[Rfam]
RNA sequence: GGUGAGAUGGCCGAGUUGGUUAUGGCGCCAGGUUAAGGUCUACCUUAACACCUACUUCCUGGUACGGAAACGUGCGUGGGUUCAAGUCCCACUCUCAUCA
Number, nucleotide and partner (000 for none) at each position: 001g099002g098003u097004g096005a095006g094007a093008u000009g000010g026011c025012c024013g023014a000015g000016u000017u000018g000019g000020u000021u000022a000023u013024g012025g011026c010027g000028c062029c061030a060031g059032g058033u000034u000035a000036a000037g000038g000039u000040c000041u000042a000043c000044c000045u000046u000047a000048a000049c000050a000051c000052c000053u000054a000055c000056u000057u000058c032059c031060u030061g029062g028063u000064a000065c000066g000067g000068a000069a000070a000071c000072g000073u000074g000075c000076g092077u091078g090079g089080g088081u000082u000083c000084a000085a000086g000087u000088c080089c079090c078091a077092c076093u007094c006095u005096c004097a003098u002099c001100a000
Shown here is a 100-nucleotide sequence from Pestalotiopsis fici, a member of the family "tRNA". Transfer RNA (tRNA) molecules are approximately 80 nucleotides in length. Their secondary structure includes four short double-helical elements and three loops (D, anti-codon, and T loops). Further hydrogen bonds mediate the characteristic L-shaped molecular structure. tRNAs have two regions of fundamental functional importance: the anti-codon, which is responsible for specific mRNA codon recognition, and the 3' end, to which the tRNAs corresponding amino acid is attached (by aminoacyl-tRNA synthetases). tRNAs cope with the degeneracy of the genetic code in two manners: having more than one tRNA (with a specific anti-codon) for a particular amino acid; and 'wobble' base-pairing, i.e. permitting non-standard base-pairing at the 3rd anti-codon position. Gene Ontology term of the family: triplet codon-amino acid adaptor activity. A search with the family's covariance model found it, with a score of 48 bits.